RNA sequence: GCCGAGCUUCGUAAUGUGAGCUUGUAACCCAAGUGGGGGCAUCAAGGUGUCUGGACACUGUUCAAGCCCACUGACUGGAUUUAGGUUUGCAUCAAACUGGUCUACCCAUUCCAAGCAAGGAAUUGCACCAUGUGGUUCAAGCGAAGGUUCAAGCUGCUUGGUUCCUAAAGCAGAGGAGACCGCGUCAGGCUGGCUUCACAGAGCAGCGAUGACCUCUCGUUUCUUGCAGUGGAAGGAUAACGGGCCGGUGCUUCCUGAUCCAGAAAAGUCAGAUGUGCUUGUCCUAAUUGGACAUUCACCUUU
Numbered sequence: 001g002c003c004g005a006g007c008u009u010c011g012u013a014a015u016g017u018g019a020g021c022u023u024g025u026a027a028c029c030c031a032a033g034u035g036g037g038g039g040c041a042u043c044a045a046g047g048u049g050u051c052u053g054g055a056c057a058c059u060g061u062u063c064a065a066g067c068c069c070a071c072u073g074a075c076u077g078g079a080u081u082u083a084g085g086u087u088u089g090c091a092u093c094a095a096a097c098u099g100g101u102c103u104a105c106c107c108a109u110u111c112c113a114a115g116c117a118a119g120g121a122a123u124u125g126c127a128c129c130a131u132g133u134g135g136u137u138c139a140a141g142c143g144a145a146g147g148u149u150c151a152a153g154c155u156g157c158u159u160g161g162u163u164c165c166u167a168a169a170g171c172a173g174a175g176g177a178g179a180c181c182g183c184g185u186c187a188g189g190c191u192g193g194c195u196u197c198a199c200a201g202a203g204c205a206g207c208g209a210u211g212a213c214c215u216c217u218c219g220u221u222u223c224u225u226g227c228a229g230u231g232g233a234a235g236g237a238u239a240a241c242g243g244g245c246c247g248g249u250g251c252u253u254c255c256u257g258a259u260c261c262a263g264a265a266a267a268g269u270c271a272g273a274u275g276u277g278c279u280u281g282u283c284c285u286a287a288u289u290g291g292a293c294a295u296u297c298a299c300c301u302u303u
Stems, first nucleotide, its partner, number of pairs: 001040003004023006028037003044302006052294002056290002059286002063281004068275001071272006077261005083256003089251001097248007106236002109234005115227009125164001127162004132157006140149003165170001172217005183208003190201003